[Rfam]
This 132-nucleotide sequence from Halalkalibacter suaedae belongs to the Rfam family "Ribosomal protein L10 leader".
The base pairs follow the family's consensus structure, which was predicted with CMfinder.
This family is a putative r-protein leader autoregulatory structure found in B. subtilis and other low-GC Gram-positive bacteria. It is located in the 5' untranslated regions of mRNAs encoding ribosomal proteins L10 and L12 (rplJ-rplL). A Rho-independent transcription terminator structure that is probably involved in regulation is included at the 3' end.
Rfam classes the family as a cis-regulatory leader.
A search with the family's covariance model found it, with a score of 95 bits.
RNA sequence: CUUAAAUUGAAUGUCAUACCGUAGACAGUAGGUGUGUUUUACACUUAAUAUUCCUACCGAGGUAAGCAAAUAGAUGCAGAUAACUGUGUUUGUAUGCCCUCAUGUCUACAUGAGGGCUUUUUAUAUGCUUCU
Numbered sequence: 001c002u003u004a005a006a007u008u009g010a011a012u013g014u015c016a017u018a019c020c021g022u023a024g025a026c027a028g029u030a031g032g033u034g035u036g037u038u039u040u041a042c043a044c045u046u047a048a049u050a051u052u053c054c055u056a057c058c059g060a061g062g063u064a065a066g067c068a069a070a071u072a073g074a075u076g077c078a079g080a081u082a083a084c085u086g087u088g089u090u091u092g093u094a095u096g097c098c099c100u101c102a103u104g105u106c107u108a109c110a111u112g113a114g115g116g117c118u119u120u121u122u123a124u125a126u127g128c129u130u131c132u
Stems, first nucleotide, its partner, number of pairs: 028057005034044003096117009